This 56-nucleotide RNA from Panagrellus redivivus belongs to the Rfam family "mir-7927 microRNA precursor family".

RNA sequence: CGGGGCGUUUCUUUGACUGAUGUGGUUAUGUUUAUCAGUCGUUGAAGUGCUUUGGU
Numbered sequence: 001c002g003g004g005g006c007g008u009u010u011c012u013u014u015g016a017c018u019g020a021u022g023u024g025g026u027u028a029u030g031u032u033u034a035u036c037a038g039u040c041g042u043u044g045a046a047g048u049g050c051u052u053u054g055g056u
Stems, first nucleotide, its partner, number of pairs: 001054011014041009

Its family is annotated with RISC complex and miRNA-mediated post-transcriptional gene silencing in the Gene Ontology. The source organism's lineage runs through Eukaryota, Eumetazoa, Bilateria, Panagrolaimomorpha and Panagrellus.